[Rfam]
RNA sequence: CUCUCCUACAAAGGUGUGUCUGUGGUUCCCUGUCUUUGGACCUCUAAGCAUUGUAGACAAAGAACCAUGGACUUCAAGAAGUCUGGAGUCAGCUUGCUCCCUGCAGGCUCAAGACCAACCAUCACACAUAG
Numbered sequence: 001c002u003c004u005c006c007u008a009c010a011a012a013g014g015u016g017u018g019u020c021u022g023u024g025g026u027u028c029c030c031u032g033u034c035u036u037u038g039g040a041c042c043u044c045u046a047a048g049c050a051u052u053g054u055a056g057a058c059a060a061a062g063a064a065c066c067a068u069g070g071a072c073u074u075c076a077a078g079a080a081g082u083c084u085g086g087a088g089u090c091a092g093c094u095u096g097c098u099c100c101c102u103g104c105a106g107g108c109u110c111a112a113g114a115c116c117a118a119c120c121a122u123c124a125c126a127c128a129u130a131g
Stems, first nucleotide, its partner, number of pairs: 002057003006053001016043001018041004024030002070123002073121001091109007